[Rfam]
RNA sequence: CCAGUGUCAGACCACGCCAUGGCGUGCCACUCUGCGGAGAGUGCAGUUUGUGACAGUGCCCCAGGAGGACUGGGU
Numbered sequence: 001c002c003a004g005u006g007u008c009a010g011a012c013c014a015c016g017c018c019a020u021g022g023c024g025u026g027c028c029a030c031u032c033u034g035c036g037g038a039g040a041g042u043g044c045a046g047u048u049u050g051u052g053a054c055a056g057u058g059c060c061c062c063a064g065g066a067g068g069a070c071u072g073g074g075u
Base pairs, nucleotide, nucleotide: 006044008050009049010048011047012046013026014025015024016023028043029042030041031040033039060074061073062072063071064070